Rfam assigns this 193-nucleotide RNA sequence from Streptomyces sp. MA5143a to the family "Streptomyces sRNA 4677". Rfam classes the family as a small RNA. From the family's description: Located in the intergenic region between anti-sigma factor SCO4677 gene and a putative regulatory protein gene SCO4676. scr4677 expression requires the SCO4677 activity and scr4677 sRNA itself seem to affect the levels of the SCO4676-associated transcripts. The base pairs follow the family's consensus structure.
[Rfam]
RNA sequence: GGAACUGACGCAGUAGAUCCGAACGGAAGGGAGCACCGCACCGCUUCUCUCACCCAUAGGGGUGAUCCCGCUCGUUCACCCGCACGCCGCCCGAACGGCCGACCUAGGCUCGCGCCACACCAUCAACACGACGGCCCUCGCCGGGAUGCCGGUCCCGGCGAGGGCCUGACCUACAAGGAAGUGAGCCUUCCCU
Dot-bracket structure: .................................................((((((....)))))).............(.((............................)).)..................(((((.(((.((((......)))).))).)))))..........(((((.....)))))..
Numbered sequence: 001g002g003a004a005c006u007g008a009c010g011c012a013g014u015a016g017a018u019c020c021g022a023a024c025g026g027a028a029g030g031g032a033g034c035a036c037c038g039c040a041c042c043g044c045u046u047c048u049c050u051c052a053c054c055c056a057u058a059g060g061g062g063u064g065a066u067c068c069c070g071c072u073c074g075u076u077c078a079c080c081c082g083c084a085c086g087c088c089g090c091c092c093g094a095a096c097g098g099c100c101g102a103c104c105u106a107g108g109c110u111c112g113c114g115c116c117a118c119a120c121c122a123u124c125a126a127c128a129c130g131a132c133g134g135c136c137c138u139c140g141c142c143g144g145g146a147u148g149c150c151g152g153u154c155c156c157g158g159c160g161a162g163g164g165c166c167u168g169a170c171c172u173a174c175a176a177g178g179a180a181g182u183g184a185g186c187c188u189u190c191c192c193u
Stems, first nucleotide, its partner, number of pairs: 050065006079114001081112002133166005139160003143156004177191005